Shown here is a 200-nucleotide sequence from Hibiscus syriacus, a member of the family "MIR159 microRNA precursor family". The literature on the family includes a 2006 paper in Genes Dev by Rajagopalan et al., "A diverse and evolutionarily fluid set of microRNAs in Arabidopsis thaliana". The match comes from Rfam's covariance-model search (141 bits). The source organism's lineage runs through Eukaryota, Streptophytina, Spermatophyta, Magnoliopsida and Hibiscus.
[Rfam]
RNA sequence: GUUGGCAUGAGAGAGCUUCCAUCAGCCCACUUACGGAUUCGAACAAGGGGGUUGAACUAGCUGCCGACUCAUUCAUUCAAGCACCCAGUAGAAAAUAGAUUCGUGGUUUUGCUACUGUGAUUGUGUGAAUGAUGCGGGAGAUAGUUUUGCAUCCUCCUUUCUCCGUGCUUGGACUGAAGGGAGCUCCUUCUUUCUCAUUU
Numbered sequence: 001g002u003u004g005g006c007a008u009g010a011g012a013g014a015g016c017u018u019c020c021a022u023c024a025g026c027c028c029a030c031u032u033a034c035g036g037a038u039u040c041g042a043a044c045a046a047g048g049g050g051g052u053u054g055a056a057c058u059a060g061c062u063g064c065c066g067a068c069u070c071a072u073u074c075a076u077u078c079a080a081g082c083a084c085c086c087a088g089u090a091g092a093a094a095a096u097a098g099a100u101u102c103g104u105g106g107u108u109u110u111g112c113u114a115c116u117g118u119g120a121u122u123g124u125g126u127g128a129a130u131g132a133u134g135c136g137g138g139a140g141a142u143a144g145u146u147u148u149g150c151a152u153c154c155u156c157c158u159u160u161c162u163c164c165g166u167g168c169u170u171g172g173a174c175u176g177a178a179g180g181g182a183g184c185u186c187c188u189u190c191u192u193u194c195u196c197a198u199u200u
Base pairs, nucleotide, nucleotide: 013186014185015184016183017182018181019180020179023176024175025174027172028171029170036163061140062139064137065136066135070131071130072129073128078123